U12 minor spliceosomal RNA: a 149-nucleotide sequence from Myotis davidii. The source organism's lineage runs through Eukaryota, Deuterostomia, Craniata, Tetrapoda and Myotis. The family is grouped with related families in Rfam's "U2 clan". The family has 62 seed sequences and 2,106 matches in Rfam 15.1. By type it is a spliceosomal small nuclear RNA. For this family Rfam cites "Pre-mRNA splicing: the discovery of a new spliceosome doubles the challenge" (Tarn and Steitz, Trends Biochem Sci, 1997).
RNA sequence: AUGCCUUAAACUUAUGACUAAGGAAAAUAAUGAUUCAGGGUGAUGCCAAAAUACUCACUGUUAAUGUGAGACGAAUUUUUAAGCAGGUAAAGGUUGCCCCUAGGGUGACCCACCUACUUUGCAGGAAAAAAAGAAAAUUAAUAUUCUUG
Numbered sequence: 001a002u003g004c005c006u007u008a009a010a011c012u013u014a015u016g017a018c019u020a021a022g023g024a025a026a027a028u029a030a031u032g033a034u035u036c037a038g039g040g041u042g043a044u045g046c047c048a049a050a051a052u053a054c055u056c057a058c059u060g061u062u063a064a065u066g067u068g069a070g071a072c073g074a075a076u077u078u079u080u081a082a083g084c085a086g087g088u089a090a091a092g093g094u095u096g097c098c099c100c101u102a103g104g105g106u107g108a109c110c111c112a113c114c115u116a117c118u119u120u121g122c123a124g125g126a127a128a129a130a131a132a133g134a135a136a137a138u139u140a141a142u143a144u145u146c147u148u149g
Base pairs, nucleotide, nucleotide: 004023005022006021007020008019033052034051035050038047039046054070055069056068057067058066084149085148086147087146091144093142094141095140096139100133101132106128109125110124113121